[Rfam]
RNA sequence: GCGUGGGUGAGCCCGCUGCGCUCUGGCUGAGUGGGCUGGGGGCACCGCCGUCUCAUUCCCCGCGGGCGGCGGAUCGGUCCGGGAGGUGUGGUUGGCCUCCCGGACUGUG
Numbered sequence: 001g002c003g004u005g006g007g008u009g010a011g012c013c014c015g016c017u018g019c020g021c022u023c024u025g026g027c028u029g030a031g032u033g034g035g036c037u038g039g040g041g042g043c044a045c046c047g048c049c050g051u052c053u054c055a056u057u058c059c060c061c062g063c064g065g066g067c068g069g070c071g072g073a074u075c076g077g078u079c080c081g082g083g084a085g086g087u088g089u090g091g092u093u094g095g096c097c098u099c100c101c102g103g104a105c106u107g108u109g
Stems, first nucleotide, its partner, number of pairs: 001108002006075003010037008038043001045072009076106012
RNA: Streptomyces RNA 4115